[Rfam]
Notes:
The family of this 94-nucleotide RNA from Capsicum baccatum is "MIR397 microRNA precursor family". The literature on the family includes a 2009 paper in Plant Cell by Wu et al., "Rice MicroRNA effector complexes and targets".
RNA sequence: AUUAAAAACAUGAUUGAGUGCAGCGUAGAUGAAAAAAACCGAGAAAGGGGAAUUCUCAAAUAUGUCAUCAACGCUGCACUCAAUGAUGUUUCUA
Numbered sequence: 001a002u003u004a005a006a007a008a009c010a011u012g013a014u015u016g017a018g019u020g021c022a023g024c025g026u027a028g029a030u031g032a033a034a035a036a037a038a039c040c041g042a043g044a045a046a047g048g049g050g051a052a053u054u055c056u057c058a059a060a061u062a063u064g065u066c067a068u069c070a071a072c073g074c075u076g077c078a079c080u081c082a083a084u085g086a087u088g089u090u091u092c093u094a
Stems, first nucleotide, its partner, number of pairs: 006091006013084014028069001030067003